Rfam assigns this 127-nucleotide RNA sequence from Sinocyclocheilus anshuiensis to the family "Small nucleolar RNA SNORA65". Rfam's curators write: U65 belongs to the H/ACA class of snoRNAs which are thought to guide the sites of modification of uridines to pseudouridines. Gene Ontology terms of the family: RNA processing and nucleolus. The literature on the family includes a 2001 paper in EMBO J by Huttenhofer et al., "RNomics: an experimental approach that identifies 201 candidates for novel, small, non-messenger RNAs in mouse". Rfam classes the family as an H/ACA-box small nucleolar RNA. The family is grouped with related families in Rfam's "SNORA65 clan". It scores 86 bits against the family's covariance model.
RNA sequence: CCCGCCACUGUGCUUGUCUUUAAAAGUGACUGUGUACUGCCAAAGGAAGGCUAAUAGUGACCCAGCUCUAGGAAACGGGGCUGACCAACUUAAUGGCUGACUCUGUGCCGAAAGGACUGGAACAAGU
Numbered sequence: 001c002c003c004g005c006c007a008c009u010g011u012g013c014u015u016g017u018c019u020u021u022a023a024a025a026g027u028g029a030c031u032g033u034g035u036a037c038u039g040c041c042a043a044a045g046g047a048a049g050g051c052u053a054a055u056a057g058u059g060a061c062c063c064a065g066c067u068c069u070a071g072g073a074a075a076c077g078g079g080g081c082u083g084a085c086c087a088a089c090u091u092a093a094u095g096g097c098u099g100a101c102u103c104u105g106u107g108c109c110g111a112a113a114g115g116a117c118u119g120g121a122a123c124a125a126g127u
Stems, first nucleotide, its partner, number of pairs: 005046002009042002018034001020032001021029001062120004066115002069112001071109002076105005085096002